[Rfam]
RNA sequence: CCCACCGAAGUGGAUCGCAGUCCUGCCUUAGCUGAGAUGGCCUGUAUUGUAGAGCACCGAUCGGGCGGUAAGGGCUCGAAAGAGCUCGCCAUCCAUUCGAACUCCGAAUAUACGGGCGUCGUAGAAGCUAGGAGGCGGGUUUAUGUGGGGUAAGCCUCAUAACCGAGAGGGGGACAACCCAGACUAAAGUUAAGGUCCCCAAAUGUCUACUAAGUGUCAAACCAAAGGGUGUUUUCGAGCAGAGACAGCAGGAAGGUAGGCUCAGAAGCAGCCAUUCUUUAAAGAGUGCGUAACAGCUCACCUGCCGAGCUCGAAAGCCCCGAAAAUGUACGGGGCUCAAGUAGACUACCGAUACUUUAGACCACCGACGAUGUCGGUGCGUGGUAGGUGGGCGUAGUGUUUGGGUAGAAGCUGGGCUGUAAAGUCCAGUGGACCGAACUACUAGUGCAGAU
Numbered sequence: 001c002c003c004a005c006c007g008a009a010g011u012g013g014a015u016c017g018c019a020g021u022c023c024u025g026c027c028u029u030a031g032c033u034g035a036g037a038u039g040g041c042c043u044g045u046a047u048u049g050u051a052g053a054g055c056a057c058c059g060a061u062c063g064g065g066c067g068g069u070a071a072g073g074g075c076u077c078g079a080a081a082g083a084g085c086u087c088g089c090c091a092u093c094c095a096u097u098c099g100a101a102c103u104c105c106g107a108a109u110a111u112a113c114g115g116g117c118g119u120c121g122u123a124g125a126a127g128c129u130a131g132g133a134g135g136c137g138g139g140u141u142u143a144u145g146u147g148g149g150g151u152a153a154g155c156c157u158c159a160u161a162a163c164c165g166a167g168a169g170g171g172g173g174a175c176a177a178c179c180c181a182g183a184c185u186a187a188a189g190u191u192a193a194g195g196u197c198c199c200c201a202a203a204u205g206u207c208u209a210c211u212a213a214g215u216g217u218c219a220a221a222c223c224a225a226a227g228g229g230u231g232u233u234u235u236c237g238a239g240c241a242g243a244g245a246c247a248g249c250a251g252g253a254a255g256g257u258a259g260g261c262u263c264a265g266a267a268g269c270a271g272c273c274a275u276u277c278u279u280u281a282a283a284g285a286g287u288g289c290g291u292a293a294c295a296g297c298u299c300a301c302c303u304g305c306c307g308a309g310c311u312c313g314a315a316a317g318c319c320c321c322g323a324a325a326a327u328g329u330a331c332g333g334g335g336c337u338c339a340a341g342u343a344g345a346c347u348a349c350c351g352a353u354a355c356u357u358u359a360g361a362c363c364a365c366c367g368a369c370g371a372u373g374u375c376g377g378u379g380c381g382u383g384g385u386a387g388g389u390g391g392g393c394g395u396a397g398u399g400u401u402u403g404g405g406u407a408g409a410a411g412c413u414g415g416g417c418u419g420u421a422a423a424g425u426c427c428a429g430u431g432g433a434c435c436g437a438a439c440u441a442c443u444a445g446u447g448c449a450g451a452u
Stems, first nucleotide, its partner, number of pairs: 001392006012023004026134001027132006036120003040117008052105001053103002059098002063094003067090002072087006138164002141162005147157002169180003184360007194350003203347001205346006227321003231318010248305005254278003259273003279283001284299001288297002361382002363379005393447001395444004399439006411430008
Rfam assigns this 452-nucleotide part of an RNA from uncultured crenarchaeote to the family "Archaeal large subunit ribosomal RNA". NCBI's taxonomy places the organism under Archaea, Thermoproteati, Thermoproteota. The sequence is in the family's curated seed alignment.